[Rfam]
RNA sequence: UCCUCUGAUGAUGAUUGAAACGUAAACUUUCGUUCUUCCGAGGAUGAUAUCCGUCUAUGCGGAAAUGAUUAUUGGAGACUUGAACUGAAGAGGC
Numbered sequence: 001u002c003c004u005c006u007g008a009u010g011a012u013g014a015u016u017g018a019a020a021c022g023u024a025a026a027c028u029u030u031c032g033u034u035c036u037u038c039c040g041a042g043g044a045u046g047a048u049a050u051c052c053g054u055c056u057a058u059g060c061g062g063a064a065a066u067g068a069u070u071a072u073u074g075g076a077g078a079c080u081u082g083a084a085c086u087g088a089a090g091a092g093g094c
Base pairs, nucleotide, nucleotide: 003092004091005090006089
A member of the RNA family "Small nucleolar RNA Z159/U59" from Helianthus annuus, 94 nucleotides long. Its Rfam clan is "SNORD59 clan". The family has 10 seed sequences and 1,401 matches in Rfam 15.1. Pairs were carried over by alignment from the consensus structure, which was predicted with PFOLD. For this family Rfam cites "The high diversity of snoRNAs in plants: identification and comparative study of 120 snoRNA genes from Oryza sativa" (Chen et al., Nucleic Acids Res, 2003).